[Rfam]
RNA sequence: UGGCUACAAAAUAAUUUAUUCUGUAGCCACUUUGAGUUACGAUAAUUACUAUGUUAAUUUACGAGAUCAUAGUAACUCAUUACUAAGUGGUUUACUAUAAUGUUAUGGUAAAUAUCCUCAUAUAUAUAGUAACCCAACUAUCGUAAAUAUGUACUGACAUUAUCGUAAAUUAGUAUAUAAAAUUAUCGUAAACGGAGGUGGCUAUAGAAUAACUUAUUUUGUAAAUA
Numbered sequence: 001u002g003g004c005u006a007c008a009a010a011a012u013a014a015u016u017u018a019u020u021c022u023g024u025a026g027c028c029a030c031u032u033u034g035a036g037u038u039a040c041g042a043u044a045a046u047u048a049c050u051a052u053g054u055u056a057a058u059u060u061a062c063g064a065g066a067u068c069a070u071a072g073u074a075a076c077u078c079a080u081u082a083c084u085a086a087g088u089g090g091u092u093u094a095c096u097a098u099a100a101u102g103u104u105a106u107g108g109u110a111a112a113u114a115u116c117c118u119c120a121u122a123u124a125u126a127u128a129g130u131a132a133c134c135c136a137a138c139u140a141u142c143g144u145a146a147a148u149a150u151g152u153a154c155u156g157a158c159a160u161u162a163u164c165g166u167a168a169a170u171u172a173g174u175a176u177a178u179a180a181a182a183u184u185a186u187c188g189u190a191a192a193c194g195g196a197g198g199u200g201g202c203u204a205u206a207g208a209a210u211a212a213c214u215u216a217u218u219u220u221g222u223a224a225a226u227a
Stems, first nucleotide, its partner, number of pairs: 001227002005223010016212018037191011050177013065164003069160002080146004087141006093131007101124003107117002
This 227-nucleotide sequence from Miscanthus lutarioriparius belongs to the Rfam family "MIR6217 microRNA precursor family". Rfam 15.1 lists 2,266 matches to the family in 13 species. The match comes from Rfam's covariance-model search (185 bits). Taxonomically the source falls in Miscanthus (Eukaryota, Embryophyta, Panicoideae, Saccharinae).